[Rfam]
RNA sequence: GUGACAGAAGAGAGUGAGCACACAUGAACCUUAUGCAUGUUAAUGCUUAAAUUUAUGCGUGCUCACCCUCUAUCUGUCAC
Numbered sequence: 001g002u003g004a005c006a007g008a009a010g011a012g013a014g015u016g017a018g019c020a021c022a023c024a025u026g027a028a029c030c031u032u033a034u035g036c037a038u039g040u041u042a043a044u045g046c047u048u049a050a051a052u053u054u055a056u057g058c059g060u061g062c063u064c065a066c067c068c069u070c071u072a073u074c075u076g077u078c079a080c
Base pairs, nucleotide, nucleotide: 001080002079003078004077005076006075007074008073010070011069012068014066015065016064017063018062019061020060021059023057024056025055

A member of the RNA family "mir-156 microRNA precursor family" from Apium graveolens, 80 nucleotides long. Gene Ontology terms of the family: RISC complex and miRNA-mediated post-transcriptional gene silencing. The family's consensus secondary structure was predicted with PFOLD. NCBI's taxonomy places the organism under Eukaryota, Viridiplantae, Magnoliopsida, campanulids, Apium. From the family's description: This family represents the plant microRNA (miRNA) precursor mir-156.